[Rfam]
RNA sequence: AACUCAUCACGAGGGACUGAGGGAACGGCCCGUUGAAGUCCCGGCAACCGCCACGAACCUCCCGUCCGUGCCCGUCCAAGGGCGCGGCCGGUCGCGGAAACGGUGCCAAAUCCGACCCGUGCGACGGCCGCCCGGGACAGAUGAGAA
Numbered sequence: 001a002a003c004u005c006a007u008c009a010c011g012a013g014g015g016a017c018u019g020a021g022g023g024a025a026c027g028g029c030c031c032g033u034u035g036a037a038g039u040c041c042c043g044g045c046a047a048c049c050g051c052c053a054c055g056a057a058c059c060u061c062c063c064g065u066c067c068g069u070g071c072c073c074g075u076c077c078a079a080g081g082g083c084g085c086g087g088c089c090g091g092u093c094g095c096g097g098a099a100a101c102g103g104u105g106c107c108a109a110a111u112c113c114g115a116c117c118c119g120u121g122c123g124a125c126g127g128c129c130g131c132c133c134g135g136g137a138c139a140g141a142u143g144a145g146a147a
Base pairs, nucleotide, nucleotide: 003145004144005143006142007141008140013042014041015040016039017038021031022030023029026114027113028112043107044106045105046104048103049102111139116136117135118134119133121131122130123129

Shown here is a 147-nucleotide RNA from Nocardioides seonyuensis, a member of the family "SAM riboswitch aptamer (S box leader)". Rfam links the family to the GO term regulation of gene expression. The source organism's lineage runs through Bacteria, Bacillati, Actinomycetes, Propionibacteriales and Nocardioides.